[Rfam]
RNA sequence: GGGGAAACCCCGGGAUGCACCCCGACUCCCCAUCCAUGGAUGGGGAGUCGGGGUGCAUCCCGGGGUUUCCCC
Numbered sequence: 001g002g003g004g005a006a007a008c009c010c011c012g013g014g015a016u017g018c019a020c021c022c023c024g025a026c027u028c029c030c031c032a033u034c035c036a037u038g039g040a041u042g043g044g045g046a047g048u049c050g051g052g053g054u055g056c057a058u059c060c061c062g063g064g065g066u067u068u069c070c071c072c
Stems, first nucleotide, its partner, number of pairs: 002071004007066024
The record is a 72-nucleotide RNA sequence, which matches "F6 TB sRNA" in Rfam. A search with the family's covariance model found it, with a score of 47 bits. On this family, see Arnvig and Young, Mol Microbiol 2009: "Identification of small RNAs in Mycobacterium tuberculosis".